[Rfam]
RNA sequence: GGGGAUACACUUAGAGUCCCCCGUACGAGCGUGUAAAUAGUGGUCCUUUUGGCCGAGUCCCACGGUUUGUGAAUC
Numbered sequence: 001g002g003g004g005a006u007a008c009a010c011u012u013a014g015a016g017u018c019c020c021c022c023g024u025a026c027g028a029g030c031g032u033g034u035a036a037a038u039a040g041u042g043g044u045c046c047u048u049u050u051g052g053c054c055g056a057g058u059c060c061c062a063c064g065g066u067u068u069g070u071g072a073a074u075c
Stems, first nucleotide, its partner, number of pairs: 001021006034069005040063004046057003